[Rfam]
The family of this 213-nucleotide part of an RNA from Claviceps pusilla is "Ascomycota telomerase RNA". The organism belongs to Claviceps, within Eukaryota. A search with the family's covariance model found it, with a score of 222 bits. A reference for the family is Qi et al. (2013), "The common ancestral core of vertebrate and fungal telomerase RNAs", Nucleic Acids Res. The base pairs follow the family's consensus structure. Rfam classes the family as a non-coding RNA gene.
RNA sequence: CGCCUCUCAGUUUCCCGAGACUCAUUUUCCGCGAGGAAUGUCUAUCGCAGACCCCCCUCCCAGGCUCGUUGAUCCAUGACUUGCUGCGCCCGAAUCUGUAUCAGAACCUCGUUGUUUGCAGCAUGUGGACAUGUCGUGUAUUGCGUCGUCGGUAACUAGACGACACGACCUAGCGGGGGGAAUGAGCCUCGGAACUUAACCCUAAGCUAACAA
Numbered sequence: 001c002g003c004c005u006c007u008c009a010g011u012u013u014c015c016c017g018a019g020a021c022u023c024a025u026u027u028u029c030c031g032c033g034a035g036g037a038a039u040g041u042c043u044a045u046c047g048c049a050g051a052c053c054c055c056c057c058u059c060c061c062a063g064g065c066u067c068g069u070u071g072a073u074c075c076a077u078g079a080c081u082u083g084c085u086g087c088g089c090c091c092g093a094a095u096c097u098g099u100a101u102c103a104g105a106a107c108c109u110c111g112u113u114g115u116u117u118g119c120a121g122c123a124u125g126u127g128g129a130c131a132u133g134u135c136g137u138g139u140a141u142u143g144c145g146u147c148g149u150c151g152g153u154a155a156c157u158a159g160a161c162g163a164c165a166c167g168a169c170c171u172a173g174c175g176g177g178g179g180g181a182a183u184g185a186g187c188c189u190c191g192g193a194a195c196u197u198a199a200c201c202c203u204a205a206g207c208u209a210a211c212a213a
Stems, first nucleotide, its partner, number of pairs: 009196003015192004